This 108-nucleotide RNA sequence from Hibiscus syriacus belongs to the Rfam family "MIR396 microRNA precursor family".
RNA sequence: CUUUGUAUUUUUCCACGGCUUUCUUGAACUGCAACUUCGUCUUAGAUCGUUCAUUAUUGAUUUUAAGUAUCAGCUGCGGUUCAAUAAAGCUGUGGGAAGAUACUGAUA
Numbered sequence: 001c002u003u004u005g006u007a008u009u010u011u012u013c014c015a016c017g018g019c020u021u022u023c024u025u026g027a028a029c030u031g032c033a034a035c036u037u038c039g040u041c042u043u044a045g046a047u048c049g050u051u052c053a054u055u056a057u058u059g060a061u062u063u064u065a066a067g068u069a070u071c072a073g074c075u076g077c078g079g080u081u082c083a084a085u086a087a088a089g090c091u092g093u094g095g096g097a098a099g100a101u102a103c104u105g106a107u108a
Stems, first nucleotide, its partner, number of pairs: 003105001005103003013095003017091006024084004029079005
NCBI's taxonomy places the organism under Eukaryota, Viridiplantae, Pentapetalae, rosids, Hibiscus. A search with the family's covariance model found it, with a score of 85 bits. Rfam links the family to the GO terms RISC complex and miRNA-mediated post-transcriptional gene silencing. A reference for the family is Xie et al. (2005), "Expression of Arabidopsis MIRNA genes", Plant Physiol. The family's consensus secondary structure was predicted with WAR.